[Rfam]
RNA sequence: GUCGAGCUCAGUAACAAGAGUUUGUGACCCAUGUGGGGACAACAAGAUGGUGGAACACUGUCCCGGCCCACCGGUCGGUUCUGUCUGGCAUCUUCUGGACCGCCCAGUCCAAACCGAGAGUGAUCCGUUUGUGUUAGGCGAAGGCUUGACUCAGGCGUUUCCUAAAGAGGGGAGGGCAAUGCGUGAGGCUGGUUUCACAGAGCAGCGAUCACCUCCCUCUCUCGGCAGUGGACGGAUAACGGAUGAAAGCCACUCAGAUCCACAUGGCCUGGUGGCUCGUACCCAGCUGAACCACCAUCUUU
Numbered sequence: 001g002u003c004g005a006g007c008u009c010a011g012u013a014a015c016a017a018g019a020g021u022u023u024g025u026g027a028c029c030c031a032u033g034u035g036g037g038g039a040c041a042a043c044a045a046g047a048u049g050g051u052g053g054a055a056c057a058c059u060g061u062c063c064c065g066g067c068c069c070a071c072c073g074g075u076c077g078g079u080u081c082u083g084u085c086u087g088g089c090a091u092c093u094u095c096u097g098g099a100c101c102g103c104c105c106a107g108u109c110c111a112a113a114c115c116g117a118g119a120g121u122g123a124u125c126c127g128u129u130u131g132u133g134u135u136a137g138g139c140g141a142a143g144g145c146u147u148g149a150c151u152c153a154g155g156c157g158u159u160u161c162c163u164a165a166a167g168a169g170g171g172g173a174g175g176g177c178a179a180u181g182c183g184u185g186a187g188g189c190u191g192g193u194u195u196c197a198c199a200g201a202g203c204a205g206c207g208a209u210c211a212c213c214u215c216c217c218u219c220u221c222u223c224g225g226c227a228g229u230g231g232a233c234g235g236a237u238a239a240c241g242g243a244u245g246a247a248a249g250c251c252a253c254u255c256a257g258a259u260c261c262a263c264a265u266g267g268c269c270u271g272g273u274g275g276c277u278c279g280u281a282c283c284c285a286g287c288u289g290a291a292c293c294a295c296c297a298u299c300u301u302u
Stems, first nucleotide, its partner, number of pairs: 001040003004023006028037003044301010056289002058286003061281001063279001065277002068275005073269004077261002080258004086252003091248001096246001098244001100242003104235002107233005114225007122161002126157006133150007162169002170217006182207003189200003
Dot-bracket structure: (((((((((........))))))....(((....))))))...((((((((((..((((((.(.((.(((((((((((.((((..(((..(....(.(.(((.((.(((((..(((((((.((..((((((.(((((((....))))))).))))))..))((....))((((((......(((....(((......)))....)))....)))))).)))))))...)))))))....))).).).).)))..)))).))....)))).))))))).).)..))).))..)))))))))).

Rfam assigns this 302-nucleotide sequence from Brassica rapa to the family "Plant signal recognition particle RNA". Rfam links the family to the GO terms signal recognition particle, endoplasmic reticulum targeting and SRP-dependent cotranslational protein targeting to membrane, signal sequence recognition. Rfam's curators put it in the seed alignment. The organism belongs to Brassica rapa, within Eukaryota. It is annotated as a non-coding RNA gene.